[Rfam]
RNA sequence: ACAAUAUUCGGGCCGUUAAUCUACUGAACUAUGUCACCCGCUUGGUAGAAGAUCUUCCUUCUAUUGU
Dot-bracket structure: ...(((...(((..(((..((((((((.(..........).)))))))).)))..)))...)))...
Numbered sequence: 001a002c003a004a005u006a007u008u009c010g011g012g013c014c015g016u017u018a019a020u021c022u023a024c025u026g027a028a029c030u031a032u033g034u035c036a037c038c039c040g041c042u043u044g045g046u047a048g049a050a051g052a053u054c055u056u057c058c059u060u061c062u063a064u065u066g067u
Stems, first nucleotide, its partner, number of pairs: 004064003010058003015053003020049008029040001

Rfam assigns this 67-nucleotide RNA from Bombyx mori to the family "mir-2774 microRNA precursor family". A reference for the family is Liu et al. (2010), "MicroRNAs of Bombyx mori identified by Solexa sequencing", BMC Genomics. Gene Ontology terms of the family: miRNA-mediated post-transcriptional gene silencing and RISC complex. The source organism's lineage runs through Eukaryota, Neoptera, Endopterygota, Amphiesmenoptera and Bombyx. The base pairs follow the family's consensus structure, which was predicted with RNAalifold.